Record summary: The record is a 168-nucleotide sequence from Oscillospiraceae bacterium Marseille-Q3528, which matches "Clostridiales-1 RNA" in Rfam. It scores 124 bits against the family's covariance model. Pairs were carried over by alignment from the consensus structure, which is taken from published work. By type it is a small RNA.

RNA sequence: UGAUACCAGAGGACAAAGGUCUGCAUCCACGGGAGCUUGCUCACAAGUGGAUGAAAGACCUUGGGACUCGCCCAGACAUGAGCAUAAAAGCGGGAUGGUAAUCCCGCGAUAUGCGAAUGGAUGUGUGAAUUGUGAGAGUGCGGAGCACGAAGCAAUUCACAGGUAUCA
Numbered sequence: 001u002g003a004u005a006c007c008a009g010a011g012g013a014c015a016a017a018g019g020u021c022u023g024c025a026u027c028c029a030c031g032g033g034a035g036c037u038u039g040c041u042c043a044c045a046a047g048u049g050g051a052u053g054a055a056a057g058a059c060c061u062u063g064g065g066a067c068u069c070g071c072c073c074a075g076a077c078a079u080g081a082g083c084a085u086a087a088a089a090g091c092g093g094g095a096u097g098g099u100a101a102u103c104c105c106g107c108g109a110u111a112u113g114c115g116a117a118u119g120g121a122u123g124u125g126u127g128a129a130u131u132g133u134g135a136g137a138g139u140g141c142g143g144a145g146c147a148c149g150a151a152g153c154a155a156u157u158c159a160c161a162g163g164u165a166u167c168a
Stems, first nucleotide, its partner, number of pairs: 001168007011068002014065001017061006024053007031044001033042003073123002077119003082114004090107007127158007138148004